[Rfam]
RNA sequence: CCUCCUUUUCUUGGUAGGGGCCGGGCGCACGGUCCCGAUCUGCAUAAGGUACAGAUAAGGGAUGGGCUCUGGCCCCCUCGGUGUCAUGUCUUCAGUAACAGUGGCCACAGUCUACCAGUUCUGUCAUCAAGCGCUGGGACACAG
Numbered sequence: 001c002c003u004c005c006u007u008u009u010c011u012u013g014g015u016a017g018g019g020g021c022c023g024g025g026c027g028c029a030c031g032g033u034c035c036c037g038a039u040c041u042g043c044a045u046a047a048g049g050u051a052c053a054g055a056u057a058a059g060g061g062a063u064g065g066g067c068u069c070u071g072g073c074c075c076c077c078u079c080g081g082u083g084u085c086a087u088g089u090c091u092u093c094a095g096u097a098a099c100a101g102u103g104g105c106c107a108c109a110g111u112c113u114a115c116c117a118g119u120u121c122u123g124u125c126a127u128c129a130a131g132c133g134c135u136g137g138g139a140c141a142c143a144g
Stems, first nucleotide, its partner, number of pairs: 003055002015044001018041003022037004079136006101115004
RNA: Small nucleolar RNA SNORA57